This 75-nucleotide RNA sequence from Crocodylus porosus belongs to the Rfam family "Mammalian CPEB3 ribozyme". A search with the family's covariance model found it, with a score of 51 bits. Rfam 15.1 lists 5,706 matches to the family in 197 species. The base pairs follow the family's consensus structure, which is taken from published work.
[Rfam]
RNA sequence: GCUGCACAUCUGAGGCCAUUGCAGAAGCACUCAAAGUGUGGCCUAUCAGAUUUCAACAAAUCUGUGAAUUCUGCU
Number, nucleotide and partner (000 for none) at each position: 001g000002c000003u000004g000005c000006a000007c000008a000009u000010c000011u000012g000013a000014g043015g042016c041017c040018a000019u000020u000021g074022c073023a072024g071025a070026a069027g039028c038029a037030c000031u000032c000033a000034a000035a000036g000037u029038g028039u027040g017041g016042c015043c014044u000045a000046u000047c064048a063049g062050a061051u060052u059053u058054c000055a000056a000057c000058a053059a052060a051061u050062c049063u048064g047065u000066g000067a000068a000069u026070u025071c024072u023073g022074c021075u000